The family of this 117-nucleotide RNA sequence from Intestinibacter bartlettii is "FMN riboswitch aptamer (RFN element)". Rfam links the family to the GO term FMN binding. Pairs were carried over by alignment from the consensus structure, which is taken from published work. Rfam 15.1 lists 6,230 matches to the family in 5,120 species.
[Rfam]
RNA sequence: AUUAUUCUUCGGGGCAGGGUGUAAUUCCCGACCGGCGGUAUAGCCCGCGAGCUACAUUGUAGCUGAUUUGGUGAAAUUCCAAAGCCGACAGUAAAGUCUGGAUGAAAGAAGAUAAAA
Numbered sequence: 001a002u003u004a005u006u007c008u009u010c011g012g013g014g015c016a017g018g019g020u021g022u023a024a025u026u027c028c029c030g031a032c033c034g035g036c037g038g039u040a041u042a043g044c045c046c047g048c049g050a051g052c053u054a055c056a057u058u059g060u061a062g063c064u065g066a067u068u069u070g071g072u073g074a075a076a077u078u079c080c081a082a083a084g085c086c087g088a089c090a091g092u093a094a095a096g097u098c099u100g101g102a103u104g105a106a107a108g109a110a111g112a113u114a115a116a117a
Base pairs, nucleotide, nucleotide: 003115006112007111008110009109010108017029018028019027031097032096033087034086035048036047037046038045043085044084051063052062053061067083068082069081070080071079089100090099091098
Lineage of the source: Bacteria > Bacillati > Peptostreptococcaceae > Intestinibacter > Intestinibacter bartlettii.